The record is a 92-nucleotide part of an RNA from Solanum lycopersicum, which matches "Eukaryotic large subunit ribosomal RNA" in Rfam. The sequence is in the family's curated seed alignment. The family's consensus secondary structure is taken from published work.
RNA sequence: GAGUUCUUUGCAGAUAACAAAAACAUUGUUGGUUUUGACAAUGUAAGUUUCUUUUCUUAUAUGUUUAGAAUGUCUUAUAAUUUCAAAUUUUU
Numbered sequence: 001g002a003g004u005u006c007u008u009u010g011c012a013g014a015u016a017a018c019a020a021a022a023a024c025a026u027u028g029u030u031g032g033u034u035u036u037g038a039c040a041a042u043g044u045a046a047g048u049u050u051c052u053u054u055u056c057u058u059a060u061a062u063g064u065u066u067a068g069a070a071u072g073u074c075u076u077a078u079a080a081u082u083u084c085a086a087a088u089u090u091u092u
Stems, first nucleotide, its partner, number of pairs: 001090005007021004025081005031074002034070002038064002041062007